The record is a 289-nucleotide RNA sequence from Nannospalax galili, which matches "Retroviral 3'UTR stability element" in Rfam. The literature on the family includes a 2009 paper in J Virol by Weil et al., "Structural characterization of the Rous sarcoma virus RNA stability element". The match comes from Rfam's covariance-model search (114 bits). The organism belongs to Nannospalax, within Eukaryota. Gene Ontology term of the family: regulation of RNA stability.
RNA sequence: AGGCUUUAAAGGAAAUUUUGCAGAAACAAUUACAGUUGGGCCACAUCCAGCCUUCAGUAAGUCCAUGGAACACACCUGUCUUUGUUACUAAGAAAGCUUCUGGGAAAUGGAGAAUGUUGCAAGACUUGGGUAAAGUCAAUGCUAGAAUGACCCUAGUGGAUAUACCCUUAAGGGGACUGCCUUGGAUCCCCGCUGUUCCCUCAGAUUUAUUUCUUAUAAUUAUAGACAUUAAAGAUUGUUUUUUCUCUAUCCCUCUACAACACCAGGAUUGUGAAAAUUUUGCUUUCUC
Numbered sequence: 001a002g003g004c005u006u007u008a009a010a011g012g013a014a015a016u017u018u019u020g021c022a023g024a025a026a027c028a029a030u031u032a033c034a035g036u037u038g039g040g041c042c043a044c045a046u047c048c049a050g051c052c053u054u055c056a057g058u059a060a061g062u063c064c065a066u067g068g069a070a071c072a073c074a075c076c077u078g079u080c081u082u083u084g085u086u087a088c089u090a091a092g093a094a095a096g097c098u099u100c101u102g103g104g105a106a107a108u109g110g111a112g113a114a115u116g117u118u119g120c121a122a123g124a125c126u127u128g129g130g131u132a133a134a135g136u137c138a139a140u141g142c143u144a145g146a147a148u149g150a151c152c153c154u155a156g157u158g159g160a161u162a163u164a165c166c167c168u169u170a171a172g173g174g175g176a177c178u179g180c181c182u183u184g185g186a187u188c189c190c191c192g193c194u195g196u197u198c199c200c201u202c203a204g205a206u207u208u209a210u211u212u213c214u215u216a217u218a219a220u221u222a223u224a225g226a227c228a229u230u231a232a233a234g235a236u237u238g239u240u241u242u243u244u245c246u247c248u249a250u251c252c253c254u255c256u257a258c259a260a261c262a263c264c265a266g267g268a269u270u271g272u273g274a275a276a277a278u279u280u281u282g283c284u285u286u287c288u289c
Stems, first nucleotide, its partner, number of pairs: 011120001013118001017114003021110001051068002086106001088104002091101002141272002152267003156263003159213002162210003168204002173199005179193002216250003
Dot-bracket structure: ..........(.(...(((.(.............................((..............)).................(.((.((.......)).)).)...).)))...).)....................((.........(((.(((((.(((...((...(((((.((...........)).)))))...))...))).))..(((.............................)))..........))).)))...)).................